[Rfam]
RNA sequence: GGCGUCACGGGUCAUCCCCCCCUGACCUGUGACGUCGACGGCCCCCGCUCCCCCCGCGGGGGCCGUCCCCU
Numbered sequence: 001g002g003c004g005u006c007a008c009g010g011g012u013c014a015u016c017c018c019c020c021c022c023u024g025a026c027c028u029g030u031g032a033c034g035u036c037g038a039c040g041g042c043c044c045c046c047g048c049u050c051c052c053c054c055c056g057c058g059g060g061g062g063c064c065g066u067c068c069c070c071u
Base pairs, nucleotide, nucleotide: 002036004033005032006031007030008029009028010027011026012025013024037067038066039065040064041063042062043061044060045059046058047057048056